[Rfam]
RNA sequence: UGGUAGAUGCACCCUGAUAGCUUUCCCCAGCCCACGGGCUGGGGAUUUUUUAU
Numbered sequence: 001u002g003g004u005a006g007a008u009g010c011a012c013c014c015u016g017a018u019a020g021c022u023u024u025c026c027c028c029a030g031c032c033c034a035c036g037g038g039c040u041g042g043g044g045a046u047u048u049u050u051u052a053u
Stems, first nucleotide, its partner, number of pairs: 002013003024045009
This 53-nucleotide RNA sequence from Leptolyngbyaceae cyanobacterium T60_A2020_046 belongs to the Rfam family "Nitrogen stress-induced RNA 1".
The literature on the family includes a 2010 paper in J Mol Biol by Ionescu et al., "Heterocyst-specific transcription of NsiR1, a non-coding RNA encoded in a tandem array of direct repeats in cyanobacteria".
It is annotated as a small RNA.
The organism belongs to Leptolyngbyaceae, within Bacteria.